[Rfam]
RNA sequence: GUCAUACUACGGUGCAUUAAGGGAAAAAGUAAACGAUGACCCCUAAGGAACUCUACGGUAAAAUACGUAUCAAAAUGCAAAACCGAACCUGACUCGGGCACUUGGCCCGAGUCAGGCUUCUUU
Numbered sequence: 001g002u003c004a005u006a007c008u009a010c011g012g013u014g015c016a017u018u019a020a021g022g023g024a025a026a027a028a029g030u031a032a033a034c035g036a037u038g039a040c041c042c043c044u045a046a047g048g049a050a051c052u053c054u055a056c057g058g059u060a061a062a063a064u065a066c067g068u069a070u071c072a073a074a075a076u077g078c079a080a081a082a083c084c085g086a087a088c089c090u091g092a093c094u095c096g097g098g099c100a101c102u103u104g105g106c107c108c109g110a111g112u113c114a115g116g117c118u119u120c121u122u123u
Stems, first nucleotide, its partner, number of pairs: 001040005010035002014030002041048002057071004088116011
Dot-bracket structure: (((((....((..((.............))...)))))))((....))........((((.......))))................(((((((((((.......))))))))))).......
About this RNA:
The record is a 123-nucleotide sequence from Gibbsiella quercinecans, which matches "Enterobacteria greA leader" in Rfam. NCBI's taxonomy places the organism under Bacteria, Pseudomonadota, Gammaproteobacteria, Yersiniaceae, Gibbsiella. The family's consensus secondary structure is taken from published work. It scores 127 bits against the family's covariance model. On this family, see Naville and Gautheret, Genome Biol 2010: "Premature terminator analysis sheds light on a hidden world of bacterial transcriptional attenuation". By type it is a cis-regulatory leader.